[Rfam]
Nucleotides: 083
Stems, first nucleotide, its partner, number of pairs: 007048014021030003
Number, partner (000 for none) and nucleotide at each position: 001000g002000a003000u004000c005000c006000c007048a008047u009046a010045g011044u012043a013042u014041g015040a016039u017038a018037g019036a020035a021030a022029g023028a024000a025000a026000u027000c028023u029022u030021u031000u032000u033000u034000u035020u036019u037018c038017u039016a040015u041014c042013a043012u044011a045010c046009u047008a048007u049000c050000c051000a052000u053000u054000u055000u056000u057000g058000g059000u060000a061000u062000u063000c064000u065000a066000a067000u068000g069000u070000a071000u072000a073000g074000a075000g076000u077000u078000a079000u080000a081000c082000g083000g

Background:
This 83-nucleotide RNA sequence belongs to the Rfam family "Plastid-psbM 3UTR RNA". It is annotated as a cis-regulatory element. Plastid psbM is a non-coding RNA (ncRNA) recognised in plastids. It was found in the three prime untranslated region (3UTR) of psbM gene, its 3UTR location suggests a role in transcript maturation. On this family, see Richter et al., Plant Commun 2023: "Retrograde signaling in plants: A critical review focusing on the GUN pathway and beyond". Rfam 15.1 lists 627 matches to the family in 337 species.